[Rfam]
RNA sequence: UGCAACACCCAUUAAAGGUGUUGUACCCCAUCCAGGAGCAACUUUACCAUAUUCUGAAUUA
Numbered sequence: 001u002g003c004a005a006c007a008c009c010c011a012u013u014a015a016a017g018g019u020g021u022u023g024u025a026c027c028c029c030a031u032c033c034a035g036g037a038g039c040a041a042c043u044u045u046a047c048c049a050u051a052u053u054c055u056g057a058a059u060u061a
Base pairs, nucleotide, nucleotide: 017045018044020042021041022040023039024038026036027035
Shown here is a 61-nucleotide RNA from Physcomitrium patens, a member of the family "Plastid-psbN 5UTR RNA". It is annotated as a cis-regulatory element. Lineage of the source: Eukaryota > Bryophyta > Bryopsida > Funariales > Physcomitrium. Rfam describes the family as follows. Plastid psbN is a non-coding RNA (ncRNA) recognised in plastids. It was reported as a conserved 11 stem-loop in the prime untranslated region (5UTR) of psbN genes. The family's consensus secondary structure was predicted with LocARNA.